The record is a 102-nucleotide sequence from Anaerobacillus isosaccharinicus, which matches "Purine riboswitch aptamer" in Rfam. The organism belongs to Anaerobacillus, within Bacteria. It scores 90 bits against the family's covariance model.
RNA sequence: ACAAUAAAAAUUAAAUAAUCUCGUAUAAUAGCAGGAAUAAGGCCUGCGAGUCUCUACCGAAUUACCGUAAAUAAUUCGACUACGAGUGAAUGUAGCCUUAGC
Numbered sequence: 001a002c003a004a005u006a007a008a009a010a011u012u013a014a015a016u017a018a019u020c021u022c023g024u025a026u027a028a029u030a031g032c033a034g035g036a037a038u039a040a041g042g043c044c045u046g047c048g049a050g051u052c053u054c055u056a057c058c059g060a061a062u063u064a065c066c067g068u069a070a071a072u073a074a075u076u077c078g079a080c081u082a083c084g085a086g087u088g089a090a091u092g093u094a095g096c097c098u099u100a101g102c
Stems, first nucleotide, its partner, number of pairs: 020086006029049001031047005058078007